This 53-nucleotide sequence from Rickettsiales endosymbiont of Stachyamoeba lipophora belongs to the Rfam family "Plastid-psbl-rps4 3UTR RNA". It scores 74 bits against the family's covariance model. The base pairs follow the family's consensus structure, which was predicted with LocARNA. Rfam classes the family as a cis-regulatory element. Rfam describes the family as follows. Plastid psbl-rps4-psbC is a non-coding RNA (ncRNA) present in plastids. It is compose of two short stem-loops in tandem in the terminal 3 prime untranslate region (3UTR) mostly in psbl and rps4 seed plants genes. The literature on the family includes a 2023 paper in Plant Commun by Richter et al., "Retrograde signaling in plants: A critical review focusing on the GUN pathway and beyond".

RNA sequence: CGGACAGAGAGGGAUUCGAACCCUCGGUACGGUUAACCCGUACUACGGUUUAG
Number, nucleotide and partner (000 for none) at each position: 001c000002g000003g000004a000005c000006a000007g000008a000009g025010a024011g023012g022013g021014a000015u000016u000017c000018g000019a000020a000021c013022c012023c011024u010025c009026g000027g043028u042029a041030c040031g039032g038033u000034u000035a000036a000037c000038c032039c031040g030041u029042a028043c027044u000045a000046c000047g000048g000049u000050u000051u000052a000053g000